Shown here is a 74-nucleotide RNA from Rousettus aegyptiacus, a member of the family "U1A polyadenylation inhibition element (PIE)". By type it is a cis-regulatory element. The match comes from Rfam's covariance-model search (62 bits). A reference for the family is Varani et al. (2000), "The NMR structure of the 38 kDa U1A protein - PIE RNA complex reveals the basis of cooperativity in regulation of polyadenylation by human U1A protein", Nat Struct Biol.

RNA sequence: UCAUACAGCAUUGUACCCAGAGUCUGCCCCACACAUUGCACCUGGCAACUGUUAGGCUGGAAUUAAAAAAAAAA
Numbered sequence: 001u002c003a004u005a006c007a008g009c010a011u012u013g014u015a016c017c018c019a020g021a022g023u024c025u026g027c028c029c030c031a032c033a034c035a036u037u038g039c040a041c042c043u044g045g046c047a048a049c050u051g052u053u054a055g056g057c058u059g060g061a062a063u064u065a066a067a068a069a070a071a072a073a074a
Stems, first nucleotide, its partner, number of pairs: 005052004017045004022034002025031002